Rfam assigns this 85-nucleotide RNA sequence from Helicoverpa armigera to the family "mir-927 microRNA precursor family".
The base pairs follow the family's consensus structure, which was predicted with RNAalifold.
On this family, see Berezikov et al., Nat Genet 2010: "Evolutionary flux of canonical microRNAs and mirtrons in Drosophila".
It scores 61 bits against the family's covariance model.
RNA sequence: GUACAGAUAUUUCGUUUUAGAAUCCAAACGCUUUGCCCAACAGCUUGGCAACGGUAAAGCGUAGGAAUUCUAAAACUGAAAUACU
Numbered sequence: 001g002u003a004c005a006g007a008u009a010u011u012u013c014g015u016u017u018u019a020g021a022a023u024c025c026a027a028a029c030g031c032u033u034u035g036c037c038c039a040a041c042a043g044c045u046u047g048g049c050a051a052c053g054g055u056a057a058a059g060c061g062u063a064g065g066a067a068u069u070c071u072a073a074a075a076c077u078g079a080a081a082u083a084c085u
Base pairs, nucleotide, nucleotide: 010079011078014076015075016074017073018072019071020070021069023067025065028062029061030060031059032058033057034056036054037053